[Rfam]
Shown here is a 59-nucleotide sequence from Eptatretus burgeri, a member of the family "Antizyme RNA frameshifting stimulation element".
Pairs were carried over by alignment from the consensus structure, which is taken from published work.
For this family Rfam cites "Identification of a new antizyme mRNA +1 frameshifting stimulatory pseudoknot in a subset of diverse invertebrates and its apparent absence in intermediate species" (Ivanov et al., J Mol Biol, 2004).
This family represents a structural element which is found in antizyme mRNA and is known to promote frameshifting. Antizyme genes have have two partially overlapping open reading frames, the second, which encodes the functional protein requires +1 translational frameshifting.
It is annotated as a frameshift element.

RNA sequence: UGAUGCCCCUCACCCAUCUUUGAGGAUCCCGGAUGGGGGGGGGGAUGGCCAAUGGGAUC
Numbered sequence: 001u002g003a004u005g006c007c008c009c010u011c012a013c014c015c016a017u018c019u020u021u022g023a024g025g026a027u028c029c030c031g032g033a034u035g036g037g038g039g040g041g042g043g044g045a046u047g048g049c050c051a052a053u054g055g056g057a058u059c
Stems, first nucleotide, its partner, number of pairs: 006044006013037006025059006